[Rfam]
RNA sequence: UGUUGAUCUGACGAGGUUGACAUGGGUGUGACAGAACAAUCCUGUUGGAAAUAGGCGGGAUAAUGUAUAGACUCAGAGGUGGUGCUCGCAAUCCCUAAAGGAUUGAACUCUGACCAAGAGGUGUCUAGUUAAUCGGUAUUAAAUUUCGCUUUAGCGAUUCCCCGAUUAUGUUGGUAUGAAGUAAUCCAAUCACCCACCCU
Number, nucleotide and partner (000 for none) at each position: 001u022002g021003u020004u019005g018006a017007u016008c015009u014010g000011a000012c000013g000014a009015g008016g007017u006018u005019g004020a003021c002022a001023u000024g195025g194026g193027u192028g191029u000030g000031a066032c065033a000034g000035a000036a000037c000038a000039a000040u060041c059042c058043u057044g056045u055046u000047g000048g000049a000050a000051a000052u000053a000054g000055g045056c044057g043058g042059g041060a040061u000062a000063a000064u000065g032066u031067a000068u000069a126070g125071a124072c123073u000074c121075a000076g087077a086078g085079g000080u116081g115082g114083u113084g000085c078086u077087c076088g000089c105090a104091a103092u102093c101094c100095c000096u000097a000098a000099a000100g094101g093102a092103u091104u090105g089106a000107a000108c120109u119110c118111u000112g000113a083114c082115c081116a080117a000118g110119a109120g108121g074122u000123g072124u071125c070126u069127a000128g000129u000130u168131a167132a166133u165134c164135g163136g162137u000138a000139u000140u000141a000142a000143a000144u000145u000146u157147c156148g155149c181150u180151u179152u178153a000154g000155c148156g147157a146158u000159u000160c000161c000162c136163c135164g134165a133166u132167u131168a130169u000170g190171u189172u188173g187174g186175u000176a000177u000178g152179a151180a150181g149182u000183a000184a000185u000186c174187c173188a172189a171190u170191c028192a027193c026194c025195c024196a000197c000198c000199c000200u000
Shown here is a 200-nucleotide sequence, a member of the family "manA RNA". The family's RNA type in Rfam is cis-regulatory element. Rfam's curators put it in the seed alignment.